Source information:
The record is a 106-nucleotide sequence from Kandleria vitulina, which matches "TPP riboswitch aptamer (THI element)" in Rfam.

[Rfam]
RNA sequence: ACAAUAGAAGUGGGGAGCUUGUGUGCAGGCUGAGAGGAAGUUAUCAACUUCGACCCUUAUACCUGAUUUGGAUAAUGCCAGCGUAGGGAAUUGUGUGUAGAUCAUG
Number, nucleotide and partner (000 for none) at each position: 001a000002c000003a000004a000005u000006a094007g000008a092009a091010g000011u000012g056013g055014g054015g000016a000017g030018c029019u028020u027021g026022u000023g000024u000025g000026c021027a020028g019029g018030c017031u000032g000033a000034g000035a000036g000037g051038a050039a049040g048041u047042u000043a000044u000045c000046a000047a041048c040049u039050u038051c037052g000053a000054c014055c013056c012057u000058u000059a000060u000061a000062c087063c086064u085065g084066a000067u000068u081069u080070g079071g078072a000073u000074a000075a000076u000077g000078c071079c070080a069081g068082c000083g000084u065085a064086g063087g062088g000089a000090a000091u009092u008093g000094u006095g000096u000097g000098u000099a000100g000101a000102u000103c000104a000105u000106g000
About this RNA:
Pairs were carried over by alignment from the consensus structure, which is taken from published work. A search with the family's covariance model found it, with a score of 66 bits.